[Rfam]
The family of this 123-nucleotide RNA sequence from Paspalum vaginatum is "Small nucleolar RNA Z206". Gene Ontology terms of the family: nucleolus and RNA processing. On this family, see Chen et al., Nucleic Acids Res 2003: "The high diversity of snoRNAs in plants: identification and comparative study of 120 snoRNA genes from Oryza sativa".

RNA sequence: GCCGCUGGAGGAGGUCACGGUGACCGCGACGGUGCGGAGGUUCACGGCGCUGCUGGGUGGCACCGACACGGUGCGCCCACAGGCGGACGACGACGGCGGGGUGAUGUGGUUCCGGCCACCGGC
Numbered sequence: 001g002c003c004g005c006u007g008g009a010g011g012a013g014g015u016c017a018c019g020g021u022g023a024c025c026g027c028g029a030c031g032g033u034g035c036g037g038a039g040g041u042u043c044a045c046g047g048c049g050c051u052g053c054u055g056g057g058u059g060g061c062a063c064c065g066a067c068a069c070g071g072u073g074c075g076c077c078c079a080c081a082g083g084c085g086g087a088c089g090a091c092g093a094c095g096g097c098g099g100g101g102u103g104a105u106g107u108g109g110u111u112c113c114g115g116c117c118a119c120c121g122g123c
Stems, first nucleotide, its partner, number of pairs: 004120001006118003
Dot-bracket structure: ...(.(((...........................................................................................................))).)...